[Rfam]
RNA sequence: AUGUACGACUCAAAAAGACAUGUAGGUGGUGUCACCGACAUUCUGGACAGGGGUUCGAUUCCCCUCAUCUCCACUCAGGGGGAUGCCAUGGCUUCGACAGGGUAUACGGAACAUGACUGAAAACCUGCUCGGAGAGCAAACCACAGAUGCAAAAUCAUCUGACACUGCUGCGAACAACAUCGUAGCGUUCUCUCGUAUUCUUACGAGAGAAUUUGCCCGCACUGACGAACUCGUCACUGCCUAAGGGGCAAUCGGGGAUUAGUCACUCCUUGUUACCCAAGUGACUGUGGGGGCUUUGCCCCC
Numbered sequence: 001a002u003g004u005a006c007g008a009c010u011c012a013a014a015a016a017g018a019c020a021u022g023u024a025g026g027u028g029g030u031g032u033c034a035c036c037g038a039c040a041u042u043c044u045g046g047a048c049a050g051g052g053g054u055u056c057g058a059u060u061c062c063c064c065u066c067a068u069c070u071c072c073a074c075u076c077a078g079g080g081g082g083a084u085g086c087c088a089u090g091g092c093u094u095c096g097a098c099a100g101g102g103u104a105u106a107c108g109g110a111a112c113a114u115g116a117c118u119g120a121a122a123a124c125c126u127g128c129u130c131g132g133a134g135a136g137c138a139a140a141c142c143a144c145a146g147a148u149g150c151a152a153a154a155u156c157a158u159c160u161g162a163c164a165c166u167g168c169u170g171c172g173a174a175c176a177a178c179a180u181c182g183u184a185g186c187g188u189u190c191u192c193u194c195g196u197a198u199u200c201u202u203a204c205g206a207g208a209g210a211a212u213u214u215g216c217c218c219g220c221a222c223u224g225a226c227g228a229a230c231u232c233g234u235c236a237c238u239g240c241c242u243a244a245g246g247g248g249c250a251a252u253c254g255g256g257g258a259u260u261a262g263u264c265a266c267u268c269c270u271u272g273u274u275a276c277c278c279a280a281g282u283g284a285c286u287g288u289g290g291g292g293g294c295u296u297u298g299c300c301c302c303c
Stems, first nucleotide, its partner, number of pairs: 004022002007019001009017002025118003029114004035109002038105001040103006049065005066085007126138005171239001246278002251274001253272006289303006
Dot-bracket structure: ...((.(.((.....)).).))..(((.((((..((.(.((((((...(((((.......)))))(((((((......)))))))............)))))).)..)).)))).))).......(((((...)))))................................(...................................................................)......((...(.((((((........)))))).)..))..........((((((...))))))

Rfam assigns this 303-nucleotide sequence from Lipsvirus ssm7 to the family "Cyanobacteria transfer-messenger RNA". The family's consensus secondary structure is taken from published work. Its Rfam clan is "tRNA clan". Taxonomically the source falls in Lipsvirus ssm7 (Viruses, Heunggongvirae, Caudoviricetes, Kyanoviridae). Rfam classes the family as a non-coding RNA gene. About the family: Bacterial tmRNA, also known as 10Sa RNA or SsrA, is named for its dual tRNA and mRNA-like properties. Its role is to liberate the mRNA from a stalled ribosome. To accomplish this part of the tmRNA is used as a reading frame that ends in a translation stop signal.